[Rfam]
A member of the RNA family "RAGATH-18 RNA", 61 nucleotides long. The family's RNA type in Rfam is small RNA. About the family: Actinobacteria, Firmicutes, Fusobacteria, Thermotogae (1 example).
RNA sequence: GCUGUGGAGUGUCAUACAAACCUGAGUAGCUUCGGCAAAAGGGGACACGAUGAAGCAGUGA
Number, nucleotide and partner (000 for none) at each position: 001g059002c058003u057004g056005u055006g000007g000008a000009g048010u047011g046012u045013c044014a000015u000016a000017c000018a000019a000020a000021c043022c042023u041024g000025a000026g000027u000028a000029g036030c035031u000032u000033c000034g000035g030036c029037a000038a000039a000040a000041g023042g022043g021044g013045a012046c011047a010048c009049g000050a000051u000052g000053a000054a000055g005056c004057a003058g002059u001060g000061a000